[Rfam]
RNA sequence: GGCCGGCCGGCGCCGAAUCCCGACAGGGAGCCGGGGACCCAAGAUCCCUGGGGUGAAUCCGCAUAUGCGGUAGGGCAGCACCUCCAGCCCGAACCCGUCAGCUAACCCGGUAGGCGUGAUGGAGAGGAGAC
Numbered sequence: 001g002g003c004c005g006g007c008c009g010g011c012g013c014c015g016a017a018u019c020c021c022g023a024c025a026g027g028g029a030g031c032c033g034g035g036g037a038c039c040c041a042a043g044a045u046c047c048c049u050g051g052g053g054u055g056a057a058u059c060c061g062c063a064u065a066u067g068c069g070g071u072a073g074g075g076c077a078g079c080a081c082c083u084c085c086a087g088c089c090c091g092a093a094c095c096c097g098u099c100a101g102c103u104a105a106c107c108c109g110g111u112a113g114g115c116g117u118g119a120u121g122g123a124g125a126g127g128a129g130a131c
Base pairs, nucleotide, nucleotide: 011116012115013114014113018029019028020027030111031110032109033108034107035106040050041049051096052095053094059070060069061068062067073090074089075088076087